Rfam assigns this 60-nucleotide RNA from Thermococcus sibiricus to the family "Small nucleolar RNA sR45".
[Rfam]
RNA sequence: AGGGAUGAUGACACCGAGGGCGCCCGAGCAAUGCAAUGAGGAGUCUUCGCUUCGCUGAUG
Number, nucleotide and partner (000 for none) at each position: 001a000002g000003g000004g000005a000006u057007g056008a000009u000010g053011a052012c000013a000014c049015c000016g048017a047018g046019g045020g044021c038022g037023c000024c000025c000026g000027a000028g000029c000030a000031a000032u000033g000034c000035a000036a000037u022038g021039a000040g000041g000042a000043g000044u020045c019046u018047u017048c016049g014050c000051u000052u011053c010054g000055c000056u007057g006058a000059u000060g000
The base pairs follow the family's consensus structure, which was predicted with WAR. For this family Rfam cites "Homologs of small nucleolar RNAs in Archaea" (Omer et al., Science, 2000). Lineage of the source: Archaea > Methanobacteriota > Thermococci > Thermococcus > Thermococcus sibiricus.